[Rfam]
RNA sequence: AAGUUGGUAUGUGACUGGCGGAACAUGGGGAACCAUGAGGGAGCAUAUCGAUGUCAGAGCCGUUCGCCUGGGCAAAGGUA
Numbered sequence: 001a002a003g004u005u006g007g008u009a010u011g012u013g014a015c016u017g018g019c020g021g022a023a024c025a026u027g028g029g030g031a032a033c034c035a036u037g038a039g040g041g042a043g044c045a046u047a048u049c050g051a052u053g054u055c056a057g058a059g060c061c062g063u064u065c066g067c068c069u070g071g072g073c074a075a076a077g078g079u080a
Base pairs, nucleotide, nucleotide: 003052004051005050006049007048008047009046010045011044012043015040016039017068018067019066020065021064025036026035027034028033059073060072061071
Rfam assigns this 80-nucleotide sequence from Paenibacillus sp. N3.4 to the family "ZMP/ZTP riboswitch aptamer (pfl RNA motif)". A search with the family's covariance model found it, with a score of 59 bits.